[Rfam]
RNA sequence: GAUAAUAAACGCGAUACAUAAUAGAUGUUUUGGACUCGGGAGCGGUACCCGACACCUCCACCAAUUUUGUAUUAUGGGGGUGAAAUAGUUUCGACAGACAUUGAAAGGUAUCUCUUUUAUCCAGGAAGAUACACCUGUGCAUUUUGCAAAAAAGUUCAAUUAAAUUAAGUGCAAACGAUAAUAGUUUCACUAAUGCUAGAUUAGCUGCUUAA
Numbered sequence: 001g002a003u004a005a006u007a008a009a010c011g012c013g014a015u016a017c018a019u020a021a022u023a024g025a026u027g028u029u030u031u032g033g034a035c036u037c038g039g040g041a042g043c044g045g046u047a048c049c050c051g052a053c054a055c056c057u058c059c060a061c062c063a064a065u066u067u068u069g070u071a072u073u074a075u076g077g078g079g080g081u082g083a084a085a086u087a088g089u090u091u092c093g094a095c096a097g098a099c100a101u102u103g104a105a106a107g108g109u110a111u112c113u114c115u116u117u118u119a120u121c122c123a124g125g126a127a128g129a130u131a132c133a134c135c136u137g138u139g140c141a142u143u144u145u146g147c148a149a150a151a152a153a154g155u156u157c158a159a160u161u162a163a164a165u166u167a168a169g170u171g172c173a174a175a176c177g178a179u180a181a182u183a184g185u186u187u188c189a190c191u192a193a194u195g196c197u198a199g200a201u202u203a204g205c206u207g208c209u210u211a212a
Base pairs, nucleotide, nucleotide: 001121002120003119004118005117014111015110016109017108026100027099028098030097031096032095036052037051038050039049040048053082054081055080056079057078058077059076122137123136124135125134
RNA: permuted transfer-messenger RNA
Organism: uncultured Rickettsiales bacterium